This 185-nucleotide sequence from Ideonella livida belongs to the Rfam family "6S / SsrS RNA". A search with the family's covariance model found it, with a score of 52 bits. On this family, see Wassarman and Storz, Cell 2000: "6S RNA regulates E. coli RNA polymerase activity". By type it is a non-coding RNA gene. The organism belongs to Ideonella, within Bacteria.
[Rfam]
RNA sequence: GGCUGUCCGCCGCACUCGCGUGGGUUCUAUAUUUCCUUGAACCGAUGCUCUCGCGAGCCCGGGCUUGGAACAUCACCUGGCUGGUGUGAUCGUCUCGCGUCAGAUGAACCCGAAGCCAGUUUGACCUCGCCCACCUGAAUCCCCUGGGUUCAGGAAUGCGGCCUACGGCGUGCGGCGGACACCUC
Numbered sequence: 001g002g003c004u005g006u007c008c009g010c011c012g013c014a015c016u017c018g019c020g021u022g023g024g025u026u027c028u029a030u031a032u033u034u035c036c037u038u039g040a041a042c043c044g045a046u047g048c049u050c051u052c053g054c055g056a057g058c059c060c061g062g063g064c065u066u067g068g069a070a071c072a073u074c075a076c077c078u079g080g081c082u083g084g085u086g087u088g089a090u091c092g093u094c095u096c097g098c099g100u101c102a103g104a105u106g107a108a109c110c111c112g113a114a115g116c117c118a119g120u121u122u123g124a125c126c127u128c129g130c131c132c133a134c135c136u137g138a139a140u141c142c143c144c145u146g147g148g149u150u151c152a153g154g155a156a157u158g159c160g161g162c163c164u165a166c167g168g169c170g171u172g173c174g175g176c177g178g179a180c181a182c183c184u185c
Base pairs, nucleotide, nucleotide: 002183004181005180006179007178008177009176010175011174012171013170015168017167018166033156034155035154036153038152039151040150041149042148043147061132062131063130067126068125072122075121077119078118079117080116081115086109087108091106092105093104094103095102